c-di-AMP riboswitch aptamer (ydaO/yuaA leader): a 158-nucleotide RNA from a Solirubrobacteraceae bacterium.
[Rfam]
RNA sequence: AAGCACCCGACGCCGAACCGCCGCACACCCCCAAGACCGCGGCGGACGGGGGACCCACCGGACCCACCCAGGUCCAGGGGCGAAUCGUCAGAGAUCUGACGUAGCGCAACCCAGCGCGAGCCCGACAGCUAACCCCGUAGGCGACCAACGCAUGAUCG
Numbered sequence: 001a002a003g004c005a006c007c008c009g010a011c012g013c014c015g016a017a018c019c020g021c022c023g024c025a026c027a028c029c030c031c032c033a034a035g036a037c038c039g040c041g042g043c044g045g046a047c048g049g050g051g052g053a054c055c056c057a058c059c060g061g062a063c064c065c066a067c068c069c070a071g072g073u074c075c076a077g078g079g080g081c082g083a084a085u086c087g088u089c090a091g092a093g094a095u096c097u098g099a100c101g102u103a104g105c106g107c108a109a110c111c112c113a114g115c116g117c118g119a120g121c122c123c124g125a126c127a128g129c130u131a132a133c134c135c136c137g138u139a140g141g142c143g144a145c146c147a148a149c150g151c152a153u154g155a156u157c158g
Base pairs, nucleotide, nucleotide: 011143012142013141014140018045019044020043021042022041023040024039046138047137048136049135050134051133056077078123079122080121086101087100088099089098104117105116106115107114
The match comes from Rfam's covariance-model search (56 bits).